[Rfam]
RNA sequence: GACCUAACCUCUAGGGGAUUUUCUCUAGAGUAUGGUCAAAAACACAGUGAAGAAUAAAGAACUCCUAGUCAGAGUUUACACUUCACUGUGUCAUAACUGGAAACGGUUAUGGAUGGCUUAAAAACCAUC
Numbered sequence: 001g002a003c004c005u006a007a008c009c010u011c012u013a014g015g016g017g018a019u020u021u022u023c024u025c026u027a028g029a030g031u032a033u034g035g036u037c038a039a040a041a042a043c044a045c046a047g048u049g050a051a052g053a054a055u056a057a058a059g060a061a062c063u064c065c066u067a068g069u070c071a072g073a074g075u076u077u078a079c080a081c082u083u084c085a086c087u088g089u090g091u092c093a094u095a096a097c098u099g100g101a102a103a104c105g106g107u108u109a110u111g112g113a114u115g116g117c118u119u120a121a122a123a124a125c126c127a128u129c
Stems, first nucleotide, its partner, number of pairs: 001037004009030009043090010059077005092111008112129005